sRNA-Xcc1: an 85-nucleotide sequence from Xylella fastidiosa. Rfam's curators put it in the seed alignment. Taxonomically the source falls in Xylella fastidiosa (Bacteria, Pseudomonadati, Gammaproteobacteria, Lysobacteraceae).
RNA sequence: GUCGGGAGGGCGGCAGCGAUACAAGACCCUUUGGGGAAAGCUGCCCGCCGUCUGUUUCCGGUUGUUAACCUCCCGACACCCACGA
Numbered sequence: 001g002u003c004g005g006g007a008g009g010g011c012g013g014c015a016g017c018g019a020u021a022c023a024a025g026a027c028c029c030u031u032u033g034g035g036g037a038a039a040g041c042u043g044c045c046c047g048c049c050g051u052c053u054g055u056u057u058c059c060g061g062u063u064g065u066u067a068a069c070c071u072c073c074c075g076a077c078a079c080c081c082a083c084g085a
Stems, first nucleotide, its partner, number of pairs: 001077009012045004017040001027035003047062004
The literature on the family includes a 2011 paper in RNA Biol by Chen et al., "sRNA-Xcc1, an integron-encoded transposon- and plasmid-transferred trans-acting sRNA, is under the positive control of the key virulence regulators HrpG and HrpX of Xanthomonas campestris pathovar campestris".